[Rfam]
RNA sequence: CUAUGCACCACGCUGAAUCCCCGACUUACGGGGAACGGGGGAACCAUCCGGAUUUCAUUGAUUUUCGCUUAAUGAAAUCCACGGGGUGAAUCCAAGCGUCUUGAAACUUGAGACGCGAGGUAGGGCGACUCUCACGCCCGAAUCCGACAGCUAACCUCGCAAGCGUACCGAGAGAGGCAAC
Numbered sequence: 001c002u003a004u005g006c007a008c009c010a011c012g013c014u015g016a017a018u019c020c021c022c023g024a025c026u027u028a029c030g031g032g033g034a035a036c037g038g039g040g041g042a043a044c045c046a047u048c049c050g051g052a053u054u055u056c057a058u059u060g061a062u063u064u065u066c067g068c069u070u071a072a073u074g075a076a077a078u079c080c081a082c083g084g085g086g087u088g089a090a091u092c093c094a095a096g097c098g099u100c101u102u103g104a105a106a107c108u109u110g111a112g113a114c115g116c117g118a119g120g121u122a123g124g125g126c127g128a129c130u131c132u133c134a135c136g137c138c139c140g141a142a143u144c145c146g147a148c149a150g151c152u153a154a155c156c157u158c159g160c161a162a163g164c165g166u167a168c169c170g171a172g173a174g175a176g177g178c179a180a181c
Stems, first nucleotide, its partner, number of pairs: 011165004018034006036159005045083001084145003092120002123139004

Rfam assigns this 181-nucleotide RNA sequence from Cohnella lupini to the family "c-di-AMP riboswitch aptamer (ydaO/yuaA leader)". It scores 81 bits against the family's covariance model.